RNA sequence: AAACGUUCAACUUGCUUUAGCAAGCCGCAAAUCGACUUAAGCCAUGGAACGGGGACUUAAG
Numbered sequence: 001a002a003a004c005g006u007u008c009a010a011c012u013u014g015c016u017u018u019a020g021c022a023a024g025c026c027g028c029a030a031a032u033c034g035a036c037u038u039a040a041g042c043c044a045u046g047g048a049a050c051g052g053g054g055a056c057u058u059a060a061g
Stems, first nucleotide, its partner, number of pairs: 004051005011024004036061006042054002

Notes
Shown here is a 61-nucleotide sequence, a member of the family "Glutamine-II riboswitch aptamer". The base pairs follow the family's consensus structure, which is taken from published work.